The record is an 86-nucleotide RNA from Strongyloides stercoralis, which matches "Selenocysteine transfer RNA" in Rfam.

[Rfam]
RNA sequence: GCCGGAAUGAACUUCGAUGGUUCGGAGUGCAGGCUUCAAACCUGUAGACGCUUAGCGGCGUAAUGGUUCGAUUCCAUCUUUCCGGU
Numbered sequence: 001g002c003c004g005g006a007a008u009g010a011a012c013u014u015c016g017a018u019g020g021u022u023c024g025g026a027g028u029g030c031a032g033g034c035u036u037c038a039a040a041c042c043u044g045u046a047g048a049c050g051c052u053u054a055g056c057g058g059c060g061u062a063a064u065g066g067u068u069c070g071a072u073u074c075c076a077u078c079u080u081u082c083c084g085g086u
Base pairs, nucleotide, nucleotide: 001086002085003084004083005082006081007080009078012027013026014025015024016023017022028046029045030044031043032042033041048061049060050059051058052057063077064076065075066074
The base pairs follow the family's consensus structure, which is taken from published work. It scores 74 bits against the family's covariance model.